MIR8562 microRNA precursor family: a 239-nucleotide sequence from Amborella trichopoda. The match comes from Rfam's covariance-model search (212 bits).
[Rfam]
RNA sequence: UUUUUUACAAAUCGAAAUGAUCUGAAAGUUGGAACAUGUGUUAAUAAAAAAUAGGUGAAUCUACGAAAAAUAUCAAAAAAAUAUUUUACAUAAAAUAAAUUGACCAAAAUACCCCCGAAAAGUUUCAAGAGUAUUUUGGUCAAUUUUUUUGGCUAAUUUUUUUUUUAUAUUUUUAUUAGGUGUGUCUCACUAAGAUGUACACACGUUCCAAAAUUCAGAUCAUUCCGAUUUGUAGAAAA
Numbered sequence: 001u002u003u004u005u006u007a008c009a010a011a012u013c014g015a016a017a018u019g020a021u022c023u024g025a026a027a028g029u030u031g032g033a034a035c036a037u038g039u040g041u042u043a044a045u046a047a048a049a050a051a052u053a054g055g056u057g058a059a060u061c062u063a064c065g066a067a068a069a070a071u072a073u074c075a076a077a078a079a080a081a082u083a084u085u086u087u088a089c090a091u092a093a094a095a096u097a098a099a100u101u102g103a104c105c106a107a108a109a110u111a112c113c114c115c116c117g118a119a120a121a122g123u124u125u126c127a128a129g130a131g132u133a134u135u136u137u138g139g140u141c142a143a144u145u146u147u148u149u150u151g152g153c154u155a156a157u158u159u160u161u162u163u164u165u166u167a168u169a170u171u172u173u174u175a176u177u178a179g180g181u182g183u184g185u186c187u188c189a190c191u192a193a194g195a196u197g198u199a200c201a202c203a204c205g206u207u208c209c210a211a212a213a214u215u216c217a218g219a220u221c222a223u224u225c226c227g228a229u230u231u232g233u234a235g236a237a238a239a
Base pairs, nucleotide, nucleotide: 001239002238003237004236005235006234007233008232009231010230011229012228013227014226016224017223018222019221020220021219022218023217024216025215026214029211030210031209032208033207034206037203038202039201040200041199044196045195061179062178063177066174067173068172069171070170071169072168073167075165076164077163078162079161080160097146098145099144100143101142102141103140104139105138106137107136108135109134110133111132112131114129117124118123